[Rfam]
RNA sequence: GGGCCGGCGUACCGCCUGGUCUCCAGCCGCCGAAGCCGGCACCUGGCACUUCUUCCCCGGUGCCAGGGAACGGCUGAAGCGGAUGGGGACCAGGCGGUAUGACGCGAAAACA
Numbered sequence: 001g002g003g004c005c006g007g008c009g010u011a012c013c014g015c016c017u018g019g020u021c022u023c024c025a026g027c028c029g030c031c032g033a034a035g036c037c038g039g040c041a042c043c044u045g046g047c048a049c050u051u052c053u054u055c056c057c058c059g060g061u062g063c064c065a066g067g068g069a070a071c072g073g074c075u076g077a078a079g080c081g082g083a084u085g086g087g088g089a090c091c092a093g094g095c096g097g098u099a100u101g102a103c104g105c106g107a108a109a110a111c112a
Stems, first nucleotide, its partner, number of pairs: 010099007018091002021088005027082004034075005042067008
Rfam assigns this 112-nucleotide RNA from Phytomonospora endophytica to the family "mraW RNA". It scores 67 bits against the family's covariance model. Lineage of the source: Bacteria > Bacillati > Actinomycetes > Micromonosporales > Phytomonospora.